[Rfam]
RNA sequence: UGUUCGAUGCCACGUCGACGAUAGCUUAUGGGCUAUGAUCGUUGAUGCUACAUUGGACAAAAACAGAUGUACGUGUUUCGCUUUUCUGAUAGGAACCUGUAGAUCUUGAUUCUUUUGGUCUACGGAGCCAUUUCGGCGAUUACAUUU
Numbered sequence: 001u002g003u004u005c006g007a008u009g010c011c012a013c014g015u016c017g018a019c020g021a022u023a024g025c026u027u028a029u030g031g032g033c034u035a036u037g038a039u040c041g042u043u044g045a046u047g048c049u050a051c052a053u054u055g056g057a058c059a060a061a062a063a064c065a066g067a068u069g070u071a072c073g074u075g076u077u078u079c080g081c082u083u084u085u086c087u088g089a090u091a092g093g094a095a096c097c098u099g100u101a102g103a104u105c106u107u108g109a110u111u112c113u114u115u116u117g118g119u120c121u122a123c124g125g126a127g128c129c130a131u132u133u134c135g136g137c138g139a140u141u142a143c144a145u146u147u
Stems, first nucleotide, its partner, number of pairs: 002058008013047006020040003024033003078139005092129002097125003101121005

Shown here is a 147-nucleotide RNA sequence from Brassica rapa, a member of the family "Small nucleolar RNA snoR2/U65".
Gene Ontology terms of the family: nucleolus and RNA processing.
The base pairs follow the family's consensus structure, which was predicted with WAR.